RNA sequence: GAAUAUAGAGGCGAUGGAGUUCGCCUUAAAUUGCCACAAGAAUGAAAAAUACCUUGUGGCUGAUAACUCCUGUCCGUAU
Numbered sequence: 001g002a003a004u005a006u007a008g009a010g011g012c013g014a015u016g017g018a019g020u021u022c023g024c025c026u027u028a029a030a031u032u033g034c035c036a037c038a039a040g041a042a043u044g045a046a047a048a049a050u051a052c053c054u055u056g057u058g059g060c061u062g063a064u065a066a067c068u069c070c071u072g073u074c075c076g077u078a079u
Stems, first nucleotide, its partner, number of pairs: 010025004016070006033060008